[Rfam]
RNA: Group II catalytic intron D1-D4-4
RNA sequence: CAGUAGGUGUAAAUCCUACCUAAAUAAUUUGCUGUUCAUUUAGAAGAGCUGCCGACAGUUAAAUUUGUGAGGAUUUCGCUGAAGCUCGGCAUGUUCAAAUAACCAAGCUGUAAUACAC
Numbered sequence: 001c002a003g004u005a006g007g008u009g010u011a012a013a014u015c016c017u018a019c020c021u022a023a024a025u026a027a028u029u030u031g032c033u034g035u036u037c038a039u040u041u042a043g044a045a046g047a048g049c050u051g052c053c054g055a056c057a058g059u060u061a062a063a064u065u066u067g068u069g070a071g072g073a074u075u076u077c078g079c080u081g082a083a084g085c086u087c088g089g090c091a092u093g094u095u096c097a098a099a100u101a102a103c104c105a106a107g108c109u110g111u112a113a114u115a116c117a118c
Base pairs, nucleotide, nucleotide: 020043021042022041023040024039051090052089053088054087055086056081057080058079059078061076065072066071096110097109